[Rfam]
RNA sequence: GGAUAUGAGGGUAAUCUGGCUGUAAGAUCUGAUAUGCAUGGGUGGAUCUGACUGAUCUGUCUAGCUUAGGCAGGUGUUUGCUUUCUUCCUCGACAUUCCAUGUGUGCUCCUCCUGAUGCUCUGUGCUUGGCUAAUGAGGACAGACUCCACAACAGACAUGGUUCACUGGUCAAGGGUGUGUGGUAGCUGCUGGAAGCUCUAAGUAAGCUCAAGGCCCAUUUGUAGAUGAGUGUAGGGUAAUCAAGACUCCAAUACUGAAGAUAUAUCCAAAUGAGAAGCUGCAUACAGCAGUCUGCCAGUGCCU
Numbered sequence: 001g002g003a004u005a006u007g008a009g010g011g012u013a014a015u016c017u018g019g020c021u022g023u024a025a026g027a028u029c030u031g032a033u034a035u036g037c038a039u040g041g042g043u044g045g046a047u048c049u050g051a052c053u054g055a056u057c058u059g060u061c062u063a064g065c066u067u068a069g070g071c072a073g074g075u076g077u078u079u080g081c082u083u084u085c086u087u088c089c090u091c092g093a094c095a096u097u098c099c100a101u102g103u104g105u106g107c108u109c110c111u112c113c114u115g116a117u118g119c120u121c122u123g124u125g126c127u128u129g130g131c132u133a134a135u136g137a138g139g140a141c142a143g144a145c146u147c148c149a150c151a152a153c154a155g156a157c158a159u160g161g162u163u164c165a166c167u168g169g170u171c172a173a174g175g176g177u178g179u180g181u182g183g184u185a186g187c188u189g190c191u192g193g194a195a196g197c198u199c200u201a202a203g204u205a206a207g208c209u210c211a212a213g214g215c216c217c218a219u220u221u222g223u224a225g226a227u228g229a230g231u232g233u234a235g236g237g238u239a240a241u242c243a244a245g246a247c248u249c250c251a252a253u254a255c256u257g258a259a260g261a262u263a264u265a266u267c268c269a270a271a272u273g274a275g276a277a278g279c280u281g282c283a284u285a286c287a288g289c290a291g292u293c294u295g296c297c298a299g300u301g302c303c304u
Stems, first nucleotide, its partner, number of pairs: 001099003006092006013084002018081001024078002027075005033069001035063001036060003041057003045052001107161002111156002113130004118126002132151001138148003177246001179244001184239001187235004197228001200225001203223005269304001275297001278292005
RNA: 7SK RNA